Description
Rfam assigns this 84-nucleotide sequence from Crocodylus porosus to the family "Small nucleolar RNA MBII-202". NCBI's taxonomy places the organism under Eukaryota, Tetrapoda, Archelosauria, Crocodylia, Crocodylus. For this family Rfam cites "RNomics: an experimental approach that identifies 201 candidates for novel, small, non-messenger RNAs in mouse" (Huttenhofer et al., EMBO J, 2001).
[Rfam]
Nucleotides: 084
Base pairs, nucleotide, nucleotide: 002084003083005081006080
Number, partner (000 for none) and nucleotide at each position: 001000u002084g003083a004000u005081g006080a007000c008000a009000c010000u011000g012000u013000c014000u015000c016000c017000a018000g019000a020000a021000u022000c023000u024000c025000u026000g027000c028000c029000a030000u031000c032000u033000g034000u035000g036000a037000u038000g039000a040000c041000c042000a043000c044000g045000u046000u047000u048000g049000a050000a051000c052000c053000c054000u055000u056000u057000u058000c059000c060000a061000g062000c063000u064000g065000a066000u067000g068000a069000c070000u071000g072000u073000a074000a075000u076000g077000g078000c079000u080006u081005c082000c083003u084002c
The family's consensus secondary structure was predicted with PFOLD.
By type it is a C/D-box small nucleolar RNA.
The match comes from Rfam's covariance-model search (53 bits).